RNA: Plastid-ccsA-ndhD-1 3UTR RNA
RNA sequence: CUGAGAACCCUUUGAAUCAAGUAAUAUAGUGAUUCAAAAGGUUCUCACAAAU
Dot-bracket structure: .((((((((.(((((((((..........))))))))).)))))))).....